[Rfam]
RNA sequence: AAUCUCCUCUUUCUGCCUACCUGUUGCUACUUAAUCAACUGUGUAGUUCUGGUGCAGGAGUAUAACAAUCUGCCAUGCACCGCUGGUCUCUCUUACCUCUGAGGUCAGUGGCCAUGGUUGGUGGCCUUUCAGGCAAGGUACAGAGAUUCUUUUGUGAAUUUCUUUGCUUGGGGGCCUAUAUGUAA
Dot-bracket structure: .(((((((...((...((((..((((.........))))...))))....))...))))).))........(((.((..(((((((((((..........)))))))))))...))...)))(((((.((((((((.....(((....(....)....)))..))))))))))))).........
Numbered sequence: 001a002a003u004c005u006c007c008u009c010u011u012u013c014u015g016c017c018u019a020c021c022u023g024u025u026g027c028u029a030c031u032u033a034a035u036c037a038a039c040u041g042u043g044u045a046g047u048u049c050u051g052g053u054g055c056a057g058g059a060g061u062a063u064a065a066c067a068a069u070c071u072g073c074c075a076u077g078c079a080c081c082g083c084u085g086g087u088c089u090c091u092c093u094u095a096c097c098u099c100u101g102a103g104g105u106c107a108g109u110g111g112c113c114a115u116g117g118u119u120g121g122u123g124g125c126c127u128u129u130c131a132g133g134c135a136a137g138g139u140a141c142a143g144a145g146a147u148u149c150u151u152u153u154g155u156g157a158a159u160u161u162c163u164u165u166g167c168u169u170g171g172g173g174g175c176c177u178a179u180a181u182g183u184a185a
Stems, first nucleotide, its partner, number of pairs: 002063002004060005012052002017046004023039004072122003076116002080111011123176005129171008142161003149154001

This 185-nucleotide RNA sequence from Schizosaccharomyces cryophilus belongs to the Rfam family "small nucleolar RNA snR100". A search with the family's covariance model found it, with a score of 100 bits. The family's RNA type in Rfam is H/ACA-box small nucleolar RNA. The organism belongs to Schizosaccharomyces cryophilus, within Eukaryota.